This 132-nucleotide sequence from Prolemur simus belongs to the Rfam family "Small nucleolar RNA SNORA20". Rfam links the family to the GO terms nucleolus and RNA processing. Rfam 15.1 lists 437 matches to the family in 157 species. From the family's description: ACA20 is a member of the H/ACA class of snoRNA that guide the sites of modification of uridines to pseudouridines. It is annotated as an H/ACA-box small nucleolar RNA. It scores 87 bits against the family's covariance model. Taxonomically the source falls in Prolemur (Eukaryota, Opisthokonta, Chordata, Lemuriformes).

[Rfam]
RNA sequence: CUUCUCAUUUAUUUGUUGCUAUAGUUUCACAAUGAUAUGAGCUGUUAUAUGCAUGGGAUAAAGUAAUAUUGGGCCAUUAUAAAUGAAGAGCGAAAUAACCAUUUUCAUCUCUUUUGCCUAGACUAGACAUUG
Numbered sequence: 001c002u003u004c005u006c007a008u009u010u011a012u013u014u015g016u017u018g019c020u021a022u023a024g025u026u027u028c029a030c031a032a033u034g035a036u037a038u039g040a041g042c043u044g045u046u047a048u049a050u051g052c053a054u055g056g057g058a059u060a061a062a063g064u065a066a067u068a069u070u071g072g073g074c075c076a077u078u079a080u081a082a083a084u085g086a087a088g089a090g091c092g093a094a095a096u097a098a099c100c101a102u103u104u105u106c107a108u109c110u111c112u113u114u115u116g117c118c119u120a121g122a123c124u125a126g127a128c129a130u131u132g
Stems, first nucleotide, its partner, number of pairs: 003058006015045002018042003022037002025035002069126004074121001076119001080116002087110003092105005